[Rfam]
RNA: Y RNA
Organism: Microcebus murinus
RNA sequence: GGUUGGUCCUAGUGCAGUGGUGUUUACAACUAACGGAUCACUACCACUUACAGAUUCCUUUGUUCCUUCUUCACUCCUGUUACUUCACUUAACUAGCCUUAA
Numbered sequence: 001g002g003u004u005g006g007u008c009c010u011a012g013u014g015c016a017g018u019g020g021u022g023u024u025u026a027c028a029a030c031u032a033a034c035g036g037a038u039c040a041c042u043a044c045c046a047c048u049u050a051c052a053g054a055u056u057c058c059u060u061u062g063u064u065c066c067u068u069c070u071u072c073a074c075u076c077c078u079g080u081u082a083c084u085u086c087a088c089u090u091a092a093c094u095a096g097c098c099u100u101a102a
Base pairs, nucleotide, nucleotide: 001098002097003096004095005094006093007092011089014086016081017080018079019078020077022076028064029063030062032060033059